[Rfam]
Nucleotides: 063
Stems, first nucleotide, its partner, number of pairs: 012046006025037003050062004
Number, partner (000 for none) and nucleotide at each position: 001000a002000a003000a004000u005000a006000a007000u008000g009000a010000a011000g012046g013045c014044c015043g016042a017041c018000u019000a020000a021000a022000a023000c024000c025037g026036c027035c028000c029000u030000u031000u032000g033000c034000g035027g036026g037025c038000a039000a040000c041017g042016u043015c044014g045013g046012c047000a048000u049000a050062c051061c052060c053059c054000u055000u056000g057000c058000c059053g060052g061051g062050g063000c